[Rfam]
RNA sequence: GGUUUUAACCCAGUUAACCAAGGUUAGCAUGGAUUUCGACCAUUCGAAAGAAUGUGUUGAACACAAAUAAAUUUUGGACAAGCUUCUUCGGGGUUAUCCGUCGAAGCGAA
Number, nucleotide and partner (000 for none) at each position: 001g000002g000003u000004u000005u000006u000007a035008a034009c032010c031011c000012a000013g028014u027015u000016a025017a024018c023019c000020a000021a000022g000023g018024u017025u016026a000027g014028c013029a000030u000031g010032g009033a000034u008035u007036u000037c059038g058039a057040c056041c054042a053043u052044u051045c050046g000047a000048a000049a000050g045051a044052a043053u042054g041055u000056g040057u039058u038059g037060a000061a000062c000063a000064c000065a000066a000067a000068u000069a000070a000071a000072u000073u000074u000075u000076g000077g000078a000079c000080a000081a000082g000083c000084u108085u000086c106087u105088u104089c103090g102091g101092g099093g098094u000095u000096a000097u000098c093099c092100g000101u091102c090103g089104a088105a087106g086107c000108g084109a000110a000
Notes:
Rfam assigns this 110-nucleotide RNA from Caenorhabditis latens to the family "SL2 RNA". The base pairs follow the family's consensus structure, which is taken from published work. From the family's description: This family represents SL2 RNA. SL2 RNA is involved in trans splicing in lower eukaryotes. Trans-splicing is a form of RNA processing. The acquisition of a spliced leader from a SL RNA is a intra-molecular reaction which precisely joins exons derived from separately transcribed RNAs. Approximately 25% of C. elegans genes are organised into polycistronic transcription units and the presence of SL2 on an mRNA is an indication the the gene is in an operon. The organism belongs to Caenorhabditis, within Eukaryota.